[Rfam]
RNA sequence: AAAAAAGCAGGGACCUGUUGCCUUUGUGAACAGGUCUCUCGUAAACUUCAGGGAAAUCAGUUACAUUGUUAUUGGGUGAACCUCUGUUUUAUGUUCCGUGGCUGAAGGUUCAGUAAACGAUGGAACAUUU
Numbered sequence: 001a002a003a004a005a006a007g008c009a010g011g012g013a014c015c016u017g018u019u020g021c022c023u024u025u026g027u028g029a030a031c032a033g034g035u036c037u038c039u040c041g042u043a044a045a046c047u048u049c050a051g052g053g054a055a056a057u058c059a060g061u062u063a064c065a066u067u068g069u070u071a072u073u074g075g076g077u078g079a080a081c082c083u084c085u086g087u088u089u090u091a092u093g094u095u096c097c098g099u100g101g102c103u104g105a106a107g108g109u110u111c112a113g114u115a116a117a118c119g120a121u122g123g124a125a126c127a128u129u130u
Stems, first nucleotide, its partner, number of pairs: 005048003011037002014034004064122007077112007

Rfam assigns this 130-nucleotide RNA sequence from Salix koriyanagi to the family "Small nucleolar RNA snoR74". The family's consensus secondary structure was predicted with WAR. Taxonomically the source falls in Salix (Eukaryota, Streptophytina, Spermatophyta, Malpighiales). A search with the family's covariance model found it, with a score of 121 bits. Gene Ontology terms of the family: RNA processing and nucleolus.